Background
Rfam assigns this 120-nucleotide RNA sequence from Egibacter rhizosphaerae to the family "Glycine riboswitch aptamer". This family represents the bacterial glycine riboswitch. A search with the family's covariance model found it, with a score of 58 bits.
[Rfam]
RNA sequence: GGACGCGUCGCAGGAGAGUCUCCGCGCGCCGAUGCCGCCACCAGCGGCACCCGGCGGCCGGAGCGCCGAAGGAGCAACCCGCCCCGGGAAUCUCUCAGGCACCCGUACUGCGACGACGAG
Numbered sequence: 001g002g003a004c005g006c007g008u009c010g011c012a013g014g015a016g017a018g019u020c021u022c023c024g025c026g027c028g029c030c031g032a033u034g035c036c037g038c039c040a041c042c043a044g045c046g047g048c049a050c051c052c053g054g055c056g057g058c059c060g061g062a063g064c065g066c067c068g069a070a071g072g073a074g075c076a077a078c079c080c081g082c083c084c085c086g087g088g089a090a091u092c093u094c095u096c097a098g099g100c101a102c103c104c105g106u107a108c109u110g111c112g113a114c115g116a117c118g119a120g
Base pairs, nucleotide, nucleotide: 006115007114008113009112010111011110012109013108020063021062022061023060065100066099067098068096069095072094073093074092078087079086